[Rfam]
RNA sequence: AAUAUUCACAAGGGGAGUUCAUUCGGACUGAGAUUAGCGUAUGCUUAGACCCUCAACACCAGAACAAGAUAAUGCUUGCGUUGGGAUGUGGUCAAUUCGUUUU
Numbered sequence: 001a002a003u004a005u006u007c008a009c010a011a012g013g014g015g016a017g018u019u020c021a022u023u024c025g026g027a028c029u030g031a032g033a034u035u036a037g038c039g040u041a042u043g044c045u046u047a048g049a050c051c052c053u054c055a056a057c058a059c060c061a062g063a064a065c066a067a068g069a070u071a072a073u074g075c076u077u078g079c080g081u082u083g084g085g086a087u088g089u090g091g092u093c094a095a096u097u098c099g100u101u102u103u
Base pairs, nucleotide, nucleotide: 006091007090008089009088010087011053012052013051014050017028018027019026020025036045037044038043059084060083061082062081065078066077067076068075